[Rfam]
RNA sequence: UCCGGAUCAAUGAUGCAACCAUAAUCUGCGUUAUCUUUCUGUAACUCCUUUGGAGGAUUUGAAGAUGAUACUUAUCUACUGAGAUCUGGU
Numbered sequence: 001u002c003c004g005g006a007u008c009a010a011u012g013a014u015g016c017a018a019c020c021a022u023a024a025u026c027u028g029c030g031u032u033a034u035c036u037u038u039c040u041g042u043a044a045c046u047c048c049u050u051u052g053g054a055g056g057a058u059u060u061g062a063a064g065a066u067g068a069u070a071c072u073u074a075u076c077u078a079c080u081g082a083g084a085u086c087u088g089g090u
Stems, first nucleotide, its partner, number of pairs: 002089006